[Rfam]
RNA: isrA Hfq binding RNA
RNA sequence: ACCUUCACGGUGACGCCCGUUCCAGUCUCAAAUCCCGCCUCUUCGAGCCAGUUGCCCUUGAGAUGUAGGCUGGGGGUUGUGAAUACUACGAUCCGCAGACCGGGAGCUA
Numbered sequence: 001a002c003c004u005u006c007a008c009g010g011u012g013a014c015g016c017c018c019g020u021u022c023c024a025g026u027c028u029c030a031a032a033u034c035c036c037g038c039c040u041c042u043u044c045g046a047g048c049c050a051g052u053u054g055c056c057c058u059u060g061a062g063a064u065g066u067a068g069g070c071u072g073g074g075g076g077u078u079g080u081g082a083a084u085a086c087u088a089c090g091a092u093c094c095g096c097a098g099a100c101c102g103g104g105a106g107c108u109a
Stems, first nucleotide, its partner, number of pairs: 027081001029079002032077005049072004053065002056062001